[Rfam]
RNA: Archaeal large subunit ribosomal RNA, nucleotides 670 to 932
RNA sequence: GAGUUUGUCGCCGUGGCAAGACUAAGUCGUUUACGCGAUGGAGUCGUAGCGAAAGCAAGAAGCCCGCAGCAGUUUUCUGUGAGGGGCCUCGUGUUAACGCGCGAGAAGUCACCGCGACAUGAUCCGAAACCGGUCGAUCCUGGCCUGGUCCGGCUGAAGCGGCGCGAAAGCUCCGUGGAAGGCCUCACCGUUGCUGCGUUACAAGCGCUCGGGUGAACUGGGUCAAGGGGUGAAAUGUCAAUCGAGAUCGGUGAUGGCUGGUU
Numbered sequence: 001g002a003g004u005u006u007g008u009c010g011c012c013g014u015g016g017c018a019a020g021a022c023u024a025a026g027u028c029g030u031u032u033a034c035g036c037g038a039u040g041g042a043g044u045c046g047u048a049g050c051g052a053a054a055g056c057a058a059g060a061a062g063c064c065c066g067c068a069g070c071a072g073u074u075u076u077c078u079g080u081g082a083g084g085g086g087c088c089u090c091g092u093g094u095u096a097a098c099g100c101g102c103g104a105g106a107a108g109u110c111a112c113c114g115c116g117a118c119a120u121g122a123u124c125c126g127a128a129a130c131c132g133g134u135c136g137a138u139c140c141u142g143g144c145c146u147g148g149u150c151c152g153g154c155u156g157a158a159g160c161g162g163c164g165c166g167a168a169a170g171c172u173c174c175g176u177g178g179a180a181g182g183c184c185u186c187a188c189c190g191u192u193g194c195u196g197c198g199u200u201a202c203a204a205g206c207g208c209u210c211g212g213g214u215g216a217a218c219u220g221g222g223u224c225a226a227g228g229g230g231u232g233a234a235a236u237g238u239c240a241a242u243c244g245a246g247a248u249c250g251g252u253g254a255u256g257g258c259u260g261g262u263u
Stems, first nucleotide, its partner, number of pairs: 006119006013112005020045004026039004049056002062087004069080004090103004123261002126258001130251006139227001141225009150215001152184004159176004164171002188212003193208002196206002229239003
Dot-bracket structure: .....((((((.(((((..((((..((((......))))..))))...((....)).....((((...((((....))))...))))..((((......))))....))))).))))))...((.(...((((((...(.((((((((((.((((...((((.((....)).))))....))))...(((..((.((.......)))).)))..).))))))))).).(((.....)))......))))))......).))..